About this RNA: The record is a 155-nucleotide RNA sequence from Paenibacillus pini, which matches "c-di-AMP riboswitch aptamer (ydaO/yuaA leader)" in Rfam. A search with the family's covariance model found it, with a score of 91 bits.
RNA sequence: UUGAAUAUAACGCCGAAUUUCUAUUUGAAAGCGGGGGAACCAUUAUUUAUGGGGUGAAGUUCAUUUAUCGUCUCUUUUGUAGACCGAAGGUGAACCGGGCAACCUGUGCAUGCCCGAAUCCGUCAGCUAACCUCGUAGGCGUUAUGCAAGCAGGA
Numbered sequence: 001u002u003g004a005a006u007a008u009a010a011c012g013c014c015g016a017a018u019u020u021c022u023a024u025u026u027g028a029a030a031g032c033g034g035g036g037g038a039a040c041c042a043u044u045a046u047u048u049a050u051g052g053g054g055u056g057a058a059g060u061u062c063a064u065u066u067a068u069c070g071u072c073u074c075u076u077u078u079g080u081a082g083a084c085c086g087a088a089g090g091u092g093a094a095c096c097g098g099g100c101a102a103c104c105u106g107u108g109c110a111u112g113c114c115c116g117a118a119u120c121c122g123u124c125a126g127c128u129a130a131c132c133u134c135g136u137a138g139g140c141g142u143u144a145u146g147c148a149a150g151c152a153g154g155a
Base pairs, nucleotide, nucleotide: 011141012140013139014138018030019029020028031136032135033134034133035132036131041051042050052121053120054119060094061093062092063091064090065089066088097115098114099113100112
Background
Rfam links the family to the GO terms cyclic-di-AMP binding and regulation of gene expression.